Rfam assigns this 85-nucleotide RNA from Rhinopomastus cyanomelas to the family "Small nucleolar RNA SNORD127".
[Rfam]
RNA sequence: UGGCAACGAUGAUGACAGCAGUUGUGGCUGUAUGGAGUGGUUGCUACUGCGUGGAGACACCAGUCCCUCUAAACUGAUGUUGCCU
Numbered sequence: 001u002g003g004c005a006a007c008g009a010u011g012a013u014g015a016c017a018g019c020a021g022u023u024g025u026g027g028c029u030g031u032a033u034g035g036a037g038u039g040g041u042u043g044c045u046a047c048u049g050c051g052u053g054g055a056g057a058c059a060c061c062a063g064u065c066c067c068u069c070u071a072a073a074c075u076g077a078u079g080u081u082g083c084c085u
Stems, first nucleotide, its partner, number of pairs: 002084006